The family of this 77-nucleotide RNA sequence from Pelusios castaneus is "Mammalian CPEB3 ribozyme". Pairs were carried over by alignment from the consensus structure, which is taken from published work.

RNA sequence: UUGGCACCACAGGGACCCACAGAAGAAGUGUUGACACCAUGGGCCCUGUCAGGUUCUCCAAAUCUCCAAAUCCUACU
Numbered sequence: 001u002u003g004g005c006a007c008c009a010c011a012g013g014g015a016c017c018c019a020c021a022g023a024a025g026a027a028g029u030g031u032u033g034a035c036a037c038c039a040u041g042g043g044c045c046c047u048g049u050c051a052g053g054u055u056c057u058c059c060a061a062a063u064c065u066c067c068a069a070a071u072c073c074u075a076c077u
Stems, first nucleotide, its partner, number of pairs: 013046002016043003021077002024074002027071001028040003051065005
NCBI's taxonomy places the organism under Eukaryota, Metazoa, Craniata, Vertebrata, Pelusios.